[Rfam]
RNA: MAT2A 3'UTR stem loop D
Organism: Kingdonia uniflora
RNA sequence: UCUAGGUUGUGGCGUGAGUACAUUUCCUCAACUUAGA
Number, nucleotide and partner (000 for none) at each position: 001u037002c036003u035004a034005g033006g032007u031008u030009g028010u000011g026012g025013c000014g000015u000016g000017a000018g000019u000020a000021c000022a000023u000024u000025u012026c011027c000028u009029c000030a008031a007032c006033u005034u004035a003036g002037a001